[Rfam]
RNA sequence: GGUUCGGGAAGCCCUCGGUGGGACGAGGGCAUGAAUGGAACCGCCCCCCUUAUCGCCAGACGCCGCGCAAUGGGCCCCGACAUUGUGCCGC
Numbered sequence: 001g002g003u004u005c006g007g008g009a010a011g012c013c014c015u016c017g018g019u020g021g022g023a024c025g026a027g028g029g030c031a032u033g034a035a036u037g038g039a040a041c042c043g044c045c046c047c048c049c050u051u052a053u054c055g056c057c058a059g060a061c062g063c064c065g066c067g068c069a070a071u072g073g074g075c076c077c078c079g080a081c082a083u084u085g086u087g088c089c090g091c
Base pairs, nucleotide, nucleotide: 001042002041003040004039005038011030012029013028014027015026016025017024065091066090067089068085069084070083071082072081

Shown here is a 91-nucleotide RNA sequence from Pseudothioclava arenosa, a member of the family "Rhodo-rpoB RNA". The base pairs follow the family's consensus structure, which is taken from published work. It is annotated as a cis-regulatory element.